[Rfam]
A member of the RNA family "PyrR binding site" from Psychrobacillus sp. FJAT-21963, 147 nucleotides long. A reference for the family is Bonner et al. (2001), "Molecular recognition of pyr mRNA by the Bacillus subtilis attenuation regulatory protein PyrR", Nucleic Acids Res. Taxonomically the source falls in Psychrobacillus (Bacteria, Bacillota, Caryophanales, Bacillaceae). About the family: This family represents the PyrR binding site and terminator structure. The family's RNA type in Rfam is cis-regulatory element. The base pairs follow the family's consensus structure, which is taken from published work.

RNA sequence: UUCACCUUUAAUAACAGUCCAGAGAGGCUGAGAAGGUACAUGUGAAAGUGACUCACUAUUUGUCUGCGGACUUAUUUUGUGGGUGCACCCUAUUUUAUUACGCACAUACAACCUCUUGGGCAUCUCUAGCUCAAGAGGUUUUUUAUU
Numbered sequence: 001u002u003c004a005c006c007u008u009u010a011a012u013a014a015c016a017g018u019c020c021a022g023a024g025a026g027g028c029u030g031a032g033a034a035g036g037u038a039c040a041u042g043u044g045a046a047a048g049u050g051a052c053u054c055a056c057u058a059u060u061u062g063u064c065u066g067c068g069g070a071c072u073u074a075u076u077u078u079g080u081g082g083g084u085g086c087a088c089c090c091u092a093u094u095u096u097a098u099u100a101c102g103c104a105c106a107u108a109c110a111a112c113c114u115c116u117u118g119g120g121c122a123u124c125u126c127u128a129g130c131u132c133a134a135g136a137g138g139u140u141u142u143u144u145a146u147u
Stems, first nucleotide, its partner, number of pairs: 004037006015030005045078007053070002057066002108142001110140012